[Rfam]
RNA sequence: UGGGCGUAGCAAGCGGUUGCUUUUGAUACAAAAGAGGAAAGUCCGAGCUACAUUAAGACAAGGAUUCCAUUUAACUAAUGGCUAGGGUGACCUAAGGGAAAGUGCAACAGAAAACAACCGCCUAGUUUCUAAUGUUAAGAGUUUGGGGUUUUAGAGUUUGCUGCAAAAUUCUUGAAUUUUUAACAAUGAUUUAUAGGUAAGGGUGAAAAGGUGGAGUAAGAGCCCACCGACUUUUUAGCAAUAUUAAGUGCCGUGCAAACCCAAUUCGUAGCAAGAAGGGUAGGUUAAGAGUCUUAAGCUUUAGUCCUUCGCAUGAGAAGCAAAGUGAUUUGCUUCCUAGAUAAAUAACCGCAUAAACAGAACUCGGCUUAUGCUACGCCCAAGUG
Numbered sequence: 001u002g003g004g005c006g007u008a009g010c011a012a013g014c015g016g017u018u019g020c021u022u023u024u025g026a027u028a029c030a031a032a033a034g035a036g037g038a039a040a041g042u043c044c045g046a047g048c049u050a051c052a053u054u055a056a057g058a059c060a061a062g063g064a065u066u067c068c069a070u071u072u073a074a075c076u077a078a079u080g081g082c083u084a085g086g087g088u089g090a091c092c093u094a095a096g097g098g099a100a101a102g103u104g105c106a107a108c109a110g111a112a113a114a115c116a117a118c119c120g121c122c123u124a125g126u127u128u129c130u131a132a133u134g135u136u137a138a139g140a141g142u143u144u145g146g147g148g149u150u151u152u153a154g155a156g157u158u159u160g161c162u163g164c165a166a167a168a169u170u171c172u173u174g175a176a177u178u179u180u181u182a183a184c185a186a187u188g189a190u191u192u193a194u195a196g197g198u199a200a201g202g203g204u205g206a207a208a209a210g211g212u213g214g215a216g217u218a219a220g221a222g223c224c225c226a227c228c229g230a231c232u233u234u235u236u237a238g239c240a241a242u243a244u245u246a247a248g249u250g251c252c253g254u255g256c257a258a259a260c261c262c263a264a265u266u267c268g269u270a271g272c273a274a275g276a277a278g279g280g281u282a283g284g285u286u287a288a289g290a291g292u293c294u295u296a297a298g299c300u301u302u303a304g305u306c307c308u309u310c311g312c313a314u315g316a317g318a319a320g321c322a323a324a325g326u327g328a329u330u331u332g333c334u335u336c337c338u339a340g341a342u343a344a345a346u347a348a349c350c351g352c353a354u355a356a357a358c359a360g361a362a363c364u365c366g367g368c369u370u371a372u373g374c375u376a377c378g379c380c381c382a383a384g385u386g
Stems, first nucleotide, its partner, number of pairs: 001382011013352006020034006039370003043367005048271004060294001062267005067081005082096001083094004097262002102260002104256003118202002120198005210228005229251001230249004236243002275310004288302005317336008